[Rfam]
This 174-nucleotide RNA from Shouchella clausii belongs to the Rfam family "Lysine riboswitch aptamer". The literature on the family includes a 2003 paper in Cell by Mandal et al., "Riboswitches Control Fundamental Biochemical Pathways in Bacillus subtilis and Other Bacteria". The source organism's lineage runs through Bacteria, Bacillati, Bacillaceae, Shouchella and Shouchella clausii. A search with the family's covariance model found it, with a score of 115 bits. The base pairs follow the family's consensus structure, which is taken from published work.
RNA sequence: AGAUGGGGUAGAGGCGCAAACACCAUCAGUACCUUUUUUGAGCGAAGGCCCGCUUUGAAGAAAAGGGAAAGGGGUUUUUGCCGAAGCAAAAAGCAGGGCCUGCUGCUUUUUAGCUGGGCUGGCAUUGAAGAAGUGUCGGACUGUCACAGGGAACUGUGGAGAACUACUAUGGAU
Numbered sequence: 001a002g003a004u005g006g007g008g009u010a011g012a013g014g015c016g017c018a019a020a021c022a023c024c025a026u027c028a029g030u031a032c033c034u035u036u037u038u039u040g041a042g043c044g045a046a047g048g049c050c051c052g053c054u055u056u057g058a059a060g061a062a063a064a065g066g067g068a069a070a071g072g073g074g075u076u077u078u079u080g081c082c083g084a085a086g087c088a089a090a091a092a093g094c095a096g097g098g099c100c101u102g103c104u105g106c107u108u109u110u111u112a113g114c115u116g117g118g119c120u121g122g123c124a125u126u127g128a129a130g131a132a133g134u135g136u137c138g139g140a141c142u143g144u145c146a147c148a149g150g151g152a153a154c155u156g157u158g159g160a161g162a163a164c165u166a167c168u169a170u171g172g173a174u
Stems, first nucleotide, its partner, number of pairs: 007168005016081005022075003032066008085115003089111003092107005116142002119139008144159006